[Rfam]
RNA sequence: UAUUGGUUUAGUUAAGGGGCAUAAAUUAAUUUGGGUCAAAUGUUAUAUUUGAUCCUUAUUAUGCCAAGGCCUUUUUGAGGGGACUAUUGUUUUUUUACUAUUGAUUGUCCUCCAAGCAGCCUUGGACAUUU
Numbered sequence: 001u002a003u004u005g006g007u008u009u010a011g012u013u014a015a016g017g018g019g020c021a022u023a024a025a026u027u028a029a030u031u032u033g034g035g036u037c038a039a040a041u042g043u044u045a046u047a048u049u050u051g052a053u054c055c056u057u058a059u060u061a062u063g064c065c066a067a068g069g070c071c072u073u074u075u076u077g078a079g080g081g082g083a084c085u086a087u088u089g090u091u092u093u094u095u096u097a098c099u100a101u102u103g104a105u106u107g108u109c110c111u112c113c114a115a116g117c118a119g120c121c122u123u124g125g126a127c128a129u130u131u
Base pairs, nucleotide, nucleotide: 004021005020007018008017009016034054035053036052037051038050064125065124066123067122068121069120070119074116075115076114077113079112080111081110082109083108084107086105087104

Small nucleolar RNA U19: a 131-nucleotide sequence from Chenopodium quinoa. A search with the family's covariance model found it, with a score of 95 bits. Rfam links the family to the GO terms nucleolus and RNA processing. On this family, see Marker et al., Curr Biol 2002: "Experimental RNomics: identification of 140 candidates for small non-messenger RNAs in the plant Arabidopsis thaliana".